Notes: The record is a 367-nucleotide RNA sequence from Cellulosimicrobium funkei, which matches "transfer-messenger RNA" in Rfam. About the family: Bacterial tmRNA, also known as 10Sa RNA or SsrA, is named for its dual tRNA and mRNA-like properties. A reference for the family is Williams and Bartel (1996), "Phylogenetic analysis of tmRNA secondary structure", RNA.
RNA sequence: GGGGGUGAUCGGUUUCGACGGUGGUCGUGCUUCGAGGAGAAGCGGGCCGAGGAUGCAGGCUUAUCUCGUUAACGAUGUCUGCAAAACACAGGUGCCGAUAACAAGCGCACCGACUUCGCCCUCGCCGCCUGAGCGAGCCCCGAAGUCCGUCAGCCCGAGCUAGCUCUCGACUCGGAUCCUGGCGUCAUCUAGAGAGCCACUGCUCGCAGUCCUCGUCAUCGGGGCUGCGGGGACUUUCAGGUGACUGAGCCCGUCCGCAUCUUGUCUGCGUGAGUGCGGGGGCCGAGAAAAACGACAGCAGACUGCGCCCGGAGAAGUCCUCGAUCGGCGUCACCGGACCGGGGUUCGAUUCCCCGCACCUCCACCC
Numbered sequence: 001g002g003g004g005g006u007g008a009u010c011g012g013u014u015u016c017g018a019c020g021g022u023g024g025u026c027g028u029g030c031u032u033c034g035a036g037g038a039g040a041a042g043c044g045g046g047c048c049g050a051g052g053a054u055g056c057a058g059g060c061u062u063a064u065c066u067c068g069u070u071a072a073c074g075a076u077g078u079c080u081g082c083a084a085a086a087c088a089c090a091g092g093u094g095c096c097g098a099u100a101a102c103a104a105g106c107g108c109a110c111c112g113a114c115u116u117c118g119c120c121c122u123c124g125c126c127g128c129c130u131g132a133g134c135g136a137g138c139c140c141c142g143a144a145g146u147c148c149g150u151c152a153g154c155c156c157g158a159g160c161u162a163g164c165u166c167u168c169g170a171c172u173c174g175g176a177u178c179c180u181g182g183c184g185u186c187a188u189c190u191a192g193a194g195a196g197c198c199a200c201u202g203c204u205c206g207c208a209g210u211c212c213u214c215g216u217c218a219u220c221g222g223g224g225c226u227g228c229g230g231g232g233a234c235u236u237u238c239a240g241g242u243g244a245c246u247g248a249g250c251c252c253g254u255c256c257g258c259a260u261c262u263u264g265u266c267u268g269c270g271u272g273a274g275u276g277c278g279g280g281g282g283c284c285g286a287g288a289a290a291a292a293c294g295a296c297a298g299c300a301g302a303c304u305g306c307g308c309c310c311g312g313a314g315a316a317g318u319c320c321u322c323g324a325u326c327g328g329c330g331u332c333a334c335c336g337g338a339c340c341g342g343g344g345u346u347c348g349a350u351u352c353c354c355c356g357c358a359c360c361u362c363c364a365c366c367c
Stems, first nucleotide, its partner, number of pairs: 001363007019336007028327001032324007043311005048068005055082006120145001122143003127138002148184006155175005161169001163197006203231009215246001220241001249283004255279003261274002264303004340356005